[Rfam]
RNA sequence: AACUUAUCAGUAAUGUUUCUUAUUAAAACUGUCUGAACAUAUGAACGCCAUAGUGAUUUCAGUGCAUUACUGAGAGGAGCU
Numbered sequence: 001a002a003c004u005u006a007u008c009a010g011u012a013a014u015g016u017u018u019c020u021u022a023u024u025a026a027a028a029c030u031g032u033c034u035g036a037a038c039a040u041a042u043g044a045a046c047g048c049c050a051u052a053g054u055g056a057u058u059u060c061a062g063u064g065c066a067u068u069a070c071u072g073a074g075a076g077g078a079g080c081u
Stems, first nucleotide, its partner, number of pairs: 003079003007075002
Dot-bracket structure: ..(((.((.................................................................)).)))..
A member of the RNA family "Small nucleolar RNA SNORD72" from Rostratula benghalensis, 81 nucleotides long. A reference for the family is Huttenhofer et al. (2001), "RNomics: an experimental approach that identifies 201 candidates for novel, small, non-messenger RNAs in mouse", EMBO J. Rfam's curators write: snoRNA HBII-240 belongs to the CD family of snoRNAs. It is the human orthologue of the mouse MBII-240 and is predicted to guide 2'O-ribose methylation of the large 28S rRNA at residue U4590. A search with the family's covariance model found it, with a score of 65 bits. Taxonomically the source falls in Rostratula (Eukaryota, Sauria, Theropoda, Aves). It is annotated as a C/D-box small nucleolar RNA.